A member of the RNA family "Small nucleolar RNA Z161/Z228" from Coffea canephora, 101 nucleotides long.
Lineage of the source: Eukaryota > Streptophytina > eudicotyledons > Pentapetalae > Coffea.
Pairs were carried over by alignment from the consensus structure, which was predicted with PFOLD.

RNA sequence: GCGCCAAAGGAUGAAUAUUGGAUUAAAAUUCUCACGACGGUCGUCUGAGGCACCCUUUCAGGUGUCCUUGUUGAUGCAAUAAUCCAAGUUUUCUGAUGCUC
Numbered sequence: 001g002c003g004c005c006a007a008a009g010g011a012u013g014a015a016u017a018u019u020g021g022a023u024u025a026a027a028a029u030u031c032u033c034a035c036g037a038c039g040g041u042c043g044u045c046u047g048a049g050g051c052a053c054c055c056u057u058u059c060a061g062g063u064g065u066c067c068u069u070g071u072u073g074a075u076g077c078a079a080u081a082a083u084c085c086a087a088g089u090u091u092u093c094u095g096a097u098g099c100u101c
Stems, first nucleotide, its partner, number of pairs: 001101001003099002051064003